[Rfam]
The record is a 90-nucleotide RNA from Lucilia cuprina, which matches "mir-277 microRNA precursor family" in Rfam. The organism belongs to Lucilia, within Eukaryota. On this family, see Liu et al., BMC Genomics 2010: "MicroRNAs of Bombyx mori identified by Solexa sequencing". Rfam links the family to the GO terms miRNA-mediated post-transcriptional gene silencing and RISC complex. The family's consensus secondary structure was predicted with RNAalifold. It scores 70 bits against the family's covariance model.
RNA sequence: UUUGUUUUGGAGUUCGUAUCAGGGGUGACAUUUGCACUGGGUUUUUAAGUAGUUUGUAAAUGCACUAUCUGGUACGACACGCCAUUACGA
Numbered sequence: 001u002u003u004g005u006u007u008u009g010g011a012g013u014u015c016g017u018a019u020c021a022g023g024g025g026u027g028a029c030a031u032u033u034g035c036a037c038u039g040g041g042u043u044u045u046u047a048a049g050u051a052g053u054u055u056g057u058a059a060a061u062g063c064a065c066u067a068u069c070u071g072g073u074a075c076g077a078c079a080c081g082c083c084a085u086u087a088c089g090a
Stems, first nucleotide, its partner, number of pairs: 008084003015076009025065001027063001029062008